A member of the RNA family "Small nucleolar RNA SNORA33" from Sarcophilus harrisii, 126 nucleotides long.
Rfam 15.1 lists 1,176 matches to the family in 522 species.
It is annotated as an H/ACA-box small nucleolar RNA.
ACA33 is a member of the H/ACA class of snoRNA that guide the sites of modification of uridines to pseudouridines.
[Rfam]
RNA sequence: AAGCCAGUGUAAUUACAUCUGGAUUACCUGAAUGUGUUUUUCAGAAGUAAAAUGCUGGCAAUAGUACAGCCAUGGUACGAGCCUCAAUGACUAAGGUCCUUGAGGUCCCUGAGAAUGGCUACAUUU
Numbered sequence: 001a002a003g004c005c006a007g008u009g010u011a012a013u014u015a016c017a018u019c020u021g022g023a024u025u026a027c028c029u030g031a032a033u034g035u036g037u038u039u040u041u042c043a044g045a046a047g048u049a050a051a052a053u054g055c056u057g058g059c060a061a062u063a064g065u066a067c068a069g070c071c072a073u074g075g076u077a078c079g080a081g082c083c084u085c086a087a088u089g090a091c092u093a094a095g096g097u098c099c100u101u102g103a104g105g106u107c108c109c110u111g112a113g114a115a116u117g118g119c120u121a122c123a124u125u126u
Base pairs, nucleotide, nucleotide: 003059004058005057006056007055018045019044020043021042069119070118071117072116081106082105083104084103085102086101087100089098090097091096
Dot-bracket structure: ..(((((..........((((....................)))).........))))).........((((........(((((((.(((....))).))))))).........)))).......